RNA: MIR535 microRNA precursor family
Organism: Zingiber officinale
RNA sequence: AUGCUUGGUCGACAACGAGAGAGAGCACGUCGGUCCUUGAUCAUACUAGCAGUUAUGGUUGUGUACCAGCGUGCUGUUUCUCGUUGUCAAUUGGCU
Numbered sequence: 001a002u003g004c005u006u007g008g009u010c011g012a013c014a015a016c017g018a019g020a021g022a023g024a025g026c027a028c029g030u031c032g033g034u035c036c037u038u039g040a041u042c043a044u045a046c047u048a049g050c051a052g053u054u055a056u057g058g059u060u061g062u063g064u065a066c067c068a069g070c071g072u073g074c075u076g077u078u079u080c081u082c083g084u085u086g087u088c089a090a091u092u093g094g095c096u
Base pairs, nucleotide, nucleotide: 011088012087013086014085016083017082020079021078025074026073027072028071029070030069032067033066034065